[Rfam]
RNA sequence: CCCCCAAGGGGAAGCGAAGACCCCGUGGAGCUUUACAGCAGCCUGUCGUUGAGUUACGCCUUCGGAUGUAUAGCGUAGGUAGGAGGCGAAGAAGUGUUUUCGCCAGGAAACACAGAGCUGCCAAUGGAACACUACCCAUCCGAAGUUGUGACCCUUACUCGAAAAGAGAACACCGGUAGGUGGGCUGUUUAGGUGGGGCGCCAUGCCCUUGAAAAGAUAUCGAGGGCGCCCUAAGGUUGACUCAGGUGGGUCAGAACUCCACCGUAGAGUGCAAGAGCAAAAGUCAGCCUGACGUGACUUCGCAUAGCAGGAAGUCACGAGACGAAAGUCGGGUCUAACGAACCUUUACGGCUCUUUGGUAGGGCCUAAAGACGUCAGAAAAGCUACCCCGGGGAUAACGGAGUUGUCUCCAGCGAGAGUCCAUAUCGACCUGGAGGUUUGCUACUUCGAUGUCGGCUUUCUCCAUCCUGGCUGUGCAUCGGCAGCCAAGGGUAAGACUGUUCGUCUAUUAAAGGAGAUCGUGAGCUGGGUUUAGACCGUCGUGAGACAGGUCGGUUGCUAUCUAUUGGGGGUGUUUU
Numbered sequence: 001c002c003c004c005c006a007a008g009g010g011g012a013a014g015c016g017a018a019g020a021c022c023c024c025g026u027g028g029a030g031c032u033u034u035a036c037a038g039c040a041g042c043c044u045g046u047c048g049u050u051g052a053g054u055u056a057c058g059c060c061u062u063c064g065g066a067u068g069u070a071u072a073g074c075g076u077a078g079g080u081a082g083g084a085g086g087c088g089a090a091g092a093a094g095u096g097u098u099u100u101c102g103c104c105a106g107g108a109a110a111c112a113c114a115g116a117g118c119u120g121c122c123a124a125u126g127g128a129a130c131a132c133u134a135c136c137c138a139u140c141c142g143a144a145g146u147u148g149u150g151a152c153c154c155u156u157a158c159u160c161g162a163a164a165a166g167a168g169a170a171c172a173c174c175g176g177u178a179g180g181u182g183g184g185c186u187g188u189u190u191a192g193g194u195g196g197g198g199c200g201c202c203a204u205g206c207c208c209u210u211g212a213a214a215a216g217a218u219a220u221c222g223a224g225g226g227c228g229c230c231c232u233a234a235g236g237u238u239g240a241c242u243c244a245g246g247u248g249g250g251u252c253a254g255a256a257c258u259c260c261a262c263c264g265u266a267g268a269g270u271g272c273a274a275g276a277g278c279a280a281a282a283g284u285c286a287g288c289c290u291g292a293c294g295u296g297a298c299u300u301c302g303c304a305u306a307g308c309a310g311g312a313a314g315u316c317a318c319g320a321g322a323c324g325a326a327a328g329u330c331g332g333g334u335c336u337a338a339c340g341a342a343c344c345u346u347u348a349c350g351g352c353u354c355u356u357u358g359g360u361a362g363g364g365c366c367u368a369a370a371g372a373c374g375u376c377a378g379a380a381a382a383g384c385u386a387c388c389c390c391g392g393g394g395a396u397a398a399c400g401g402a403g404u405u406g407u408c409u410c411c412a413g414c415g416a417g418a419g420u421c422c423a424u425a426u427c428g429a430c431c432u433g434g435a436g437g438u439u440u441g442c443u444a445c446u447u448c449g450a451u452g453u454c455g456g457c458u459u460u461c462u463c464c465a466u467c468c469u470g471g472c473u474g475u476g477c478a479u480c481g482g483c484a485g486c487c488a489a490g491g492g493u494a495a496g497a498c499u500g501u502u503c504g505u506c507u508a509u510u511a512a513a514g515g516a517g518a519u520c521g522u523g524a525g526c527u528g529g530g531u532u533u534a535g536a537c538c539g540u541c542g543u544g545a546g547a548c549a550g551g552u553c554g555g556u557u558g559c560u561a562u563c564u565a566u567u568g569g570g571g572g573u574g575u576u577u578u
Base pairs, nucleotide, nucleotide: 001572002571003570004569005568006567007566010564011563012562014559015558022393023392024391025390027389028388029385030384031383032382033381035188036187037186038185042180043179044178045177046176047175048174051154053152054151055150056149057148058147060145061144062143063142064141065140066139067138068137078136079135080134081133082132085119086118087117097110098109099108100107101106158168159167160166191204192202193201194200205227206226207225208224209223210222230333231332236288237287238286239285240284241283242268243267245263246262247261248260249259250258269278270277293319294318295317296316297315298314299313300312301311321330323328344371345370346369347368348367350366351365352364353363354362402443403442404441406440407437408436409435410434411433412432413431417427418426454529455527456526457525458524459521460518461517462516463515464514467492468491471486472485473484474483475482495507496506497505498504535553536552537551538550539548540547541546

Overview
Shown here is a 578-nucleotide part of an RNA from an uncultured archaeon, a member of the family "Archaeal large subunit ribosomal RNA". Pairs were carried over by alignment from the consensus structure, which is taken from published work. The sequence is in the family's curated seed alignment.